[Rfam]
U12 minor spliceosomal RNA: a 148-nucleotide RNA sequence from Vanessa tameamea. The organism belongs to Vanessa, within Eukaryota. Clan: U2 clan. The match comes from Rfam's covariance-model search (92 bits). The literature on the family includes a 1997 paper in Trends Biochem Sci by Tarn and Steitz, "Pre-mRNA splicing: the discovery of a new spliceosome doubles the challenge".
RNA sequence: GUGCCUCAAUCAAUUGAGUAAGGAAAUUAUUGGGCCUUGGUAACUCUAGGCUAUGUCCUAUUGGGCGAUUGUAUUUUUGUAGGGUACAGGUCGUCCCUUUGAGUCGCGGGCCUACUUUGUCCGCGAUUCAGGUGAAGCGAUCUGCCCU
Numbered sequence: 001g002u003g004c005c006u007c008a009a010u011c012a013a014u015u016g017a018g019u020a021a022g023g024a025a026a027u028u029a030u031u032g033g034g035c036c037u038u039g040g041u042a043a044c045u046c047u048a049g050g051c052u053a054u055g056u057c058c059u060a061u062u063g064g065g066c067g068a069u070u071g072u073a074u075u076u077u078u079g080u081a082g083g084g085u086a087c088a089g090g091u092c093g094u095c096c097c098u099u100u101g102a103g104u105c106g107c108g109g110g111c112c113u114a115c116u117u118u119g120u121c122c123g124c125g126a127u128u129c130a131g132g133u134g135a136a137g138c139g140a141u142c143u144g145c146c147c148u
Base pairs, nucleotide, nucleotide: 004023005022006021008019033052034051035050036049037048039046054067055066056065057064058063081148082147083146084145085144088143089142090141091140092139093138094137097132098131101129102128103127104126105125107123108122109121110120111119